RNA sequence: CUGUCCGAGGGGCGCUGCAGCAGGUUUUCCCUGUCAGGCUCGGAUGGGGCGUUGUUUGCCAGGACGAUCCUCGACCGGCAAACCUUAAACGCACAACGGCGCCCAUUCGCA
Numbered sequence: 001c002u003g004u005c006c007g008a009g010g011g012g013c014g015c016u017g018c019a020g021c022a023g024g025u026u027u028u029c030c031c032u033g034u035c036a037g038g039c040u041c042g043g044a045u046g047g048g049g050c051g052u053u054g055u056u057u058g059c060c061a062g063g064a065c066g067a068u069c070c071u072c073g074a075c076c077g078g079c080a081a082a083c084c085u086u087a088a089a090c091g092c093a094c095a096a097c098g099g100c101g102c103c104c105a106u107u108c109g110c111a
Base pairs, nucleotide, nucleotide: 002046003045004044005043006042007041008040021033022032023031024030
SAH (S-adenosyl-L-homocysteine) riboswitch aptamer: a 111-nucleotide sequence from Pseudomonas syringae. Taxonomically the source falls in Pseudomonas syringae pv. syringae (Bacteria, Pseudomonas, Pseudomonas syringae group genomosp. 1, Pseudomonas syringae). A reference for the family is Wang et al. (2008), "Riboswitches that sense S-adenosylhomocysteine and activate genes involved in coenzyme recycling", Mol Cell.